[Rfam]
RNA sequence: CUUGGUAUUCUUCCACAGCUUUCUUGAACUGCAACUUCGUCUUAGAUCGUUGGUUGCCUGUUGUUGAUAAUGGUGCAUCCUUGUGGGCGGUAUACUGUUAUUUUUGUUGCGGUUCAAUAAAGCUGUGGGAAGAUACACACA
Numbered sequence: 001c002u003u004g005g006u007a008u009u010c011u012u013c014c015a016c017a018g019c020u021u022u023c024u025u026g027a028a029c030u031g032c033a034a035c036u037u038c039g040u041c042u043u044a045g046a047u048c049g050u051u052g053g054u055u056g057c058c059u060g061u062u063g064u065u066g067a068u069a070a071u072g073g074u075g076c077a078u079c080c081u082u083g084u085g086g087g088c089g090g091u092a093u094a095c096u097g098u099u100a101u102u103u104u105u106g107u108u109g110c111g112g113u114u115c116a117a118u119a120a121a122g123c124u125g126u127g128g129g130a131a132g133a134u135a136c137a138c139a140c141a
Base pairs, nucleotide, nucleotide: 005136006135007134013128014127015126017124018123019122020121021120022119024117025116026115027114029112030111031110032109033108034107035106